[Rfam]
RNA sequence: AGGAGAAAAGGGCAAAUUCAUUGAAAAAUGAGGACGCAAAGCUAGAGGGGCUAAAGUCAUUUGAUCAUGCCAGCCAGCUGCCGAA
Numbered sequence: 001a002g003g004a005g006a007a008a009a010g011g012g013c014a015a016a017u018u019c020a021u022u023g024a025a026a027a028a029u030g031a032g033g034a035c036g037c038a039a040a041g042c043u044a045g046a047g048g049g050g051c052u053a054a055a056g057u058c059a060u061u062u063g064a065u066c067a068u069g070c071c072a073g074c075c076a077g078c079u080g081c082c083g084a085a
Stems, first nucleotide, its partner, number of pairs: 012037002017032006040079004047075002049071003056065003